[Rfam]
RNA: let-7 microRNA precursor family
RNA sequence: GCGGUGUGAGGUAGUAGAUUGUAUAGUUGUGGGGUAGUGAUUUUUAUCCUGUGCAGCAGAUAACUAUACAAUCUAUUGCCUUCCCUGA
Dot-bracket structure: .(((.(.((((((((((((((((((((....((((..........))))..(......)...))))))))))))))))))))).))).